[Rfam]
A member of the RNA family "Small nucleolar RNA GlsR25" from Giardia duodenalis, 147 nucleotides long. For this family Rfam cites "Evolutionarily divergent spliceosomal snRNAs and a conserved non-coding RNA processing motif in Giardia lamblia" (Hudson et al., Nucleic Acids Res, 2012). It is annotated as an H/ACA-box small nucleolar RNA.
RNA sequence: CUUUGCAACGGCACUUGUAACGAAAAAGUAAAUCGAGGCUGCUAAAACACAGGGCUGCACAGCAUCCUUGCACCUGCGUAGCCGAUAGGUACGGGUGACCGUUUAUCCCGGGCUCGUGUGGGCCCGGGUAGGCACGGUCAAAGAGUU
Numbered sequence: 001c002u003u004u005g006c007a008a009c010g011g012c013a014c015u016u017g018u019a020a021c022g023a024a025a026a027a028g029u030a031a032a033u034c035g036a037g038g039c040u041g042c043u044a045a046a047a048c049a050c051a052g053g054g055c056u057g058c059a060c061a062g063c064a065u066c067c068u069u070g071c072a073c074c075u076g077c078g079u080a081g082c083c084g085a086u087a088g089g090u091a092c093g094g095g096u097g098a099c100c101g102u103u104u105a106u107c108c109c110g111g112g113c114u115c116g117u118g119u120g121g122g123c124c125c126g127g128g129u130a131g132g133c134a135c136g137g138u139c140a141a142a143g144a145g146u147u
Stems, first nucleotide, its partner, number of pairs: 037083006050070005056064003097139006107128009

NCBI's taxonomy places the organism under Eukaryota, Diplomonadida, Hexamitidae, Giardiinae, Giardia duodenalis.